Overview:
This 60-nucleotide RNA sequence from Pristionchus pacificus belongs to the Rfam family "mir-8250 microRNA precursor family".
RNA sequence: UCCUUUAUUUGUCUGGAUCGGAUUGUUAUUUGAAUCAAUCUCCAGAUAUAAUGAGGGAAA
Numbered sequence: 001u002c003c004u005u006u007a008u009u010u011g012u013c014u015g016g017a018u019c020g021g022a023u024u025g026u027u028a029u030u031u032g033a034a035u036c037a038a039u040c041u042c043c044a045g046a047u048a049u050a051a052u053g054a055g056g057g058a059a060a
Base pairs, nucleotide, nucleotide: 001058002057003056004055005054006053007052008051009050010048011047012046013045014044015043016042017041021040022039023038024037025036
NCBI's taxonomy places the organism under Eukaryota, Opisthokonta, Metazoa, Bilateria, Pristionchus.